[Rfam]
RNA: Small nucleolar RNA SNORA42/SNORA80 family
RNA sequence: GCAUGGUCUUGGAUUUAUGGAAGGUCCCUUUUCCAUGGGCCUCUCAUAGUGAAUUCCGUGCCAGAGAAAUCAGCCACCCCGAACCAUUGCCAGACCUUUGCCUGUAAGUCAGGAGCACUGAAGUGGGUGGCACAGUG
Numbered sequence: 001g002c003a004u005g006g007u008c009u010u011g012g013a014u015u016u017a018u019g020g021a022a023g024g025u026c027c028c029u030u031u032u033c034c035a036u037g038g039g040c041c042u043c044u045c046a047u048a049g050u051g052a053a054u055u056c057c058g059u060g061c062c063a064g065a066g067a068a069a070u071c072a073g074c075c076a077c078c079c080c081g082a083a084c085c086a087u088u089g090c091c092a093g094a095c096c097u098u099u100g101c102c103u104g105u106a107a108g109u110c111a112g113g114a115g116c117a118c119u120g121a122a123g124u125g126g127g128u129g130g131c132a133c134a135g136u137g
Base pairs, nucleotide, nucleotide: 001061002060003059004058005056006055007052008051015049016048017047018046019045020044022042023041024040026038027037074130075129076128077127078126079125085120086119090115093110094109095108097106